The record is a 376-nucleotide sequence from Lawsonia intracellularis, which matches "transfer-messenger RNA" in Rfam.
Pairs were carried over by alignment from the consensus structure, which is taken from published work.
The family is grouped with related families in Rfam's "tRNA clan".
By type it is a non-coding RNA gene.
Lineage of the source: Bacteria > Thermodesulfobacteriota > Desulfovibrionia > Desulfovibrionaceae > Lawsonia intracellularis.
[Rfam]
RNA sequence: GGGGACGCACUGGUUUCGACGGGGAUGUGGAAACCAAAGUGGCAGGUCGAGGCGCCGCUGGCCUCGUAAAAAGCGGCAACAAUGUAAUUGCAAACAACAAUUACGACUACGCUCUUGCUGCAUAAGUAAUAGCGUACCUGGCUAUUUAAAUAGCCACGUCAAUCCUGCUGAUGUCUGAUAAGCUGGUGCGGCGACAAUCAUCAGGCUAGCAGCCUAUUGUGUUUACUGGAUAGUCUGCGAAAUUAUUACAGUAAACUUGUUUUGAUCUGCCUGGCUAAGGGCUAGAAUCAAAAUAAGAUGUAAACUUAGCCUAAACCUGUAGAUACUUUGUGUGGAACUUUCUCGGACGCGGGUUCGAUUCCCGCCGUCUCCACCA
Numbered sequence: 001g002g003g004g005a006c007g008c009a010c011u012g013g014u015u016u017c018g019a020c021g022g023g024g025a026u027g028u029g030g031a032a033a034c035c036a037a038a039g040u041g042g043c044a045g046g047u048c049g050a051g052g053c054g055c056c057g058c059u060g061g062c063c064u065c066g067u068a069a070a071a072a073g074c075g076g077c078a079a080c081a082a083u084g085u086a087a088u089u090g091c092a093a094a095c096a097a098c099a100a101u102u103a104c105g106a107c108u109a110c111g112c113u114c115u116u117g118c119u120g121c122a123u124a125a126g127u128a129a130u131a132g133c134g135u136a137c138c139u140g141g142c143u144a145u146u147u148a149a150a151u152a153g154c155c156a157c158g159u160c161a162a163u164c165c166u167g168c169u170g171a172u173g174u175c176u177g178a179u180a181a182g183c184u185g186g187u188g189c190g191g192c193g194a195c196a197a198u199c200a201u202c203a204g205g206c207u208a209g210c211a212g213c214c215u216a217u218u219g220u221g222u223u224u225a226c227u228g229g230a231u232a233g234u235c236u237g238c239g240a241a242a243u244u245a246u247u248a249c250a251g252u253a254a255a256c257u258u259g260u261u262u263u264g265a266u267c268u269g270c271c272u273g274g275c276u277a278a279g280g281g282c283u284a285g286a287a288u289c290a291a292a293a294u295a296a297g298a299u300g301u302a303a304a305c306u307u308a309g310c311c312u313a314a315a316c317c318u319g320u321a322g323a324u325a326c327u328u329u330g331u332g333u334g335g336a337a338c339u340u341u342c343u344c345g346g347a348c349g350c351g352g353g354u355u356c357g358a359u360u361c362c363c364g365c366c367g368u369c370u371c372c373a374c375c376a
Stems, first nucleotide, its partner, number of pairs: 001372007020345006027338002032333001035330007043319005048066005054077006112132002115129005157193004164186002167183003174205006207240001209238004214233001221256006259294008268285001269282003273311007349365005